The record is an 84-nucleotide sequence from Bombyx mori, which matches "mir-2807 microRNA precursor family" in Rfam.
[Rfam]
RNA sequence: UUAACUCAAAUUUGUAUGCAGUUGGCACAGUGCCCCUAGGGGUAAACGUAGGCAAACGUUCCAAUUCCAUACUAAUUUGAGGUA
Numbered sequence: 001u002u003a004a005c006u007c008a009a010a011u012u013u014g015u016a017u018g019c020a021g022u023u024g025g026c027a028c029a030g031u032g033c034c035c036c037u038a039g040g041g042g043u044a045a046a047c048g049u050a051g052g053c054a055a056a057c058g059u060u061c062c063a064a065u066u067c068c069a070u071a072c073u074a075a076u077u078u079g080a081g082g083u084a
Base pairs, nucleotide, nucleotide: 008078009077010076011075012074014072015071016070018068020066021065022064023063024062025061027059028058034052035051039047

Overview:
It scores 62 bits against the family's covariance model. The organism belongs to Bombyx, within Eukaryota.